[Rfam]
RNA: Mason-Pfizer monkey virus packaging signal
Organism: Nannospalax galili
RNA sequence: UGGUGCCCAACUAGGGGCCUGGAUACUGGGGACAGUGUGAGGGACACGACGGAGGAAAAAAGGGGUGCGCACCCAUUCAAAUAAUUCGGAGACACCGUGGGAGCCUGCCACGACCGAGCCGAAGGUAAGUUGGUCGUUUAAUCAUGGGGCCAGAAUUAAGCCAGCAUCUGAUUUAUGUGAUACAGUUAAGAGAAGCUCUGCAGGCAAGAGGAGUAAAGAUUAAAACUGAGGAUUUAUUUCAUUUCUUUGAUUUUGUAAAGGACAUUUGUCCCU
Numbered sequence: 001u002g003g004u005g006c007c008c009a010a011c012u013a014g015g016g017g018c019c020u021g022g023a024u025a026c027u028g029g030g031g032a033c034a035g036u037g038u039g040a041g042g043g044a045c046a047c048g049a050c051g052g053a054g055g056a057a058a059a060a061a062g063g064g065g066u067g068c069g070c071a072c073c074c075a076u077u078c079a080a081a082u083a084a085u086u087c088g089g090a091g092a093c094a095c096c097g098u099g100g101g102a103g104c105c106u107g108c109c110a111c112g113a114c115c116g117a118g119c120c121g122a123a124g125g126u127a128a129g130u131u132g133g134u135c136g137u138u139u140a141a142u143c144a145u146g147g148g149g150c151c152a153g154a155a156u157u158a159a160g161c162c163a164g165c166a167u168c169u170g171a172u173u174u175a176u177g178u179g180a181u182a183c184a185g186u187u188a189a190g191a192g193a194a195g196c197u198c199u200g201c202a203g204g205c206a207a208g209a210g211g212a213g214u215a216a217a218g219a220u221u222a223a224a225a226c227u228g229a230g231g232a233u234u235u236a237u238u239u240c241a242u243u244u245c246u247u248u249g250a251u252u253u254u255g256u257a258a259a260g261g262a263c264a265u266u267u268g269u270c271c272c273u
Base pairs, nucleotide, nucleotide: 006030007029008028014024036048037047038046083126085124086122087121093116096112097111098110099109100108133151135149137148138147139146140145157200158199160196161195208248209247210246211245212244213243217235218234219233220232221231258273260271261270262269263268